This 146-nucleotide RNA sequence from Sediminibacillus albus belongs to the Rfam family "FMN riboswitch aptamer (RFN element)". The RFN element is a highly conserved domain that is found frequently in the 5'-untranslated regions of prokaryotic mRNAs that encode for flavin mononucleotide (FMN) biosynthesis and transport proteins. This element is a metabolite-dependent riboswitch that directly binds FMN in the absence of proteins. In Bacillus subtilis, the riboswitch most likely controls gene expression by causing premature transcription termination within the 5' untranslated region of the ribDEAHT operon and precluding access to the ribosome-binding site of ypaA mRNA.The FMN riboswitch structure, reported in present an FMN-bound six-stem junction, adopts a butterfly-like scaffold, stapled together by opposingly directed but nearly identically folded peripheral domains. It scores 112 bits against the family's covariance model. The family's consensus secondary structure is taken from published work. Gene Ontology term of the family: FMN binding. NCBI's taxonomy places the organism under Bacteria, Bacillati, Bacillota, Caryophanales, Sediminibacillus.
[Rfam]
RNA sequence: AAAUUCCUUUGGGGCAGGGUGUAAAUCCCGACCGGCGGUGAUGGGCGAACGUAUGCCCUUAGUCCGUGACCCGCUUGCUAAUUGCAGCGGUGGAUUUGGUGCAAUUCCAAAGCCGACAGUGAAAGUCUGGAUGGGAAAAGGAAACG
Numbered sequence: 001a002a003a004u005u006c007c008u009u010u011g012g013g014g015c016a017g018g019g020u021g022u023a024a025a026u027c028c029c030g031a032c033c034g035g036c037g038g039u040g041a042u043g044g045g046c047g048a049a050c051g052u053a054u055g056c057c058c059u060u061a062g063u064c065c066g067u068g069a070c071c072c073g074c075u076u077g078c079u080a081a082u083u084g085c086a087g088c089g090g091u092g093g094a095u096u097u098g099g100u101g102c103a104a105u106u107c108c109a110a111a112g113c114c115g116a117c118a119g120u121g122a123a124a125g126u127c128u129g130g131a132u133g134g135g136a137a138a139a140g141g142a143a144a145c146g
Stems, first nucleotide, its partner, number of pairs: 004143007017029003031126002033115002035067004062113002071090002095111005117129003